[Rfam]
Rfam assigns this 93-nucleotide RNA sequence from Streptomyces turgidiscabies to the family "Streptomyces RNA 3202". Identified by deep sequencing of transcriptome at the end of exponential growth phase. Appears smaller on northern blot than sequencing transcript. It is annotated as a small RNA.

RNA sequence: CCGAGUCCCGACGCAACCCCCCCCAGCGUCGGGGCUCAUCCCGAGCCGGGCUUCGGCACCUACCCCCCCCAGGUGCCGGGGCCCGGCUCUUUU
Number, nucleotide and partner (000 for none) at each position: 001c000002c000003g000004a000005g035006u034007c033008c032009c031010g030011a000012c028013g027014c026015a000016a000017c000018c000019c000020c000021c000022c000023c000024c000025a000026g014027c013028g012029u000030c010031g009032g008033g007034g006035c005036u000037c000038a000039u000040c000041c000042c000043g089044a088045g087046c086047c085048g084049g083050g082051c081052u080053u000054c078055g077056g076057c075058a074059c073060c072061u071062a000063c000064c000065c000066c000067c000068c000069c000070c000071a061072g060073g059074u058075g057076c056077c055078g054079g000080g052081g051082c050083c049084c048085g047086g046087c045088u044089c043090u000091u000092u000093u000